[Rfam]
The family of this 70-nucleotide RNA from Burkholderia thailandensis is "int-alpA RNA".
The base pairs follow the family's consensus structure, which is taken from published work.
Rfam describes the family as follows. Acidobacteria (1 example), Planctomycetes (1 example), Proteobacteria.
RNA sequence: GCCGAGCCUAGCUAUGGCCAGCGAAGAGCCGGACACCUUCACCGGCCUGGCAGCGGCUUCCGAUUGAAGG
Dot-bracket structure: ((((.(((..(((......))).....(((((...[[[[[[)))))..)))..)))).......]]]]]]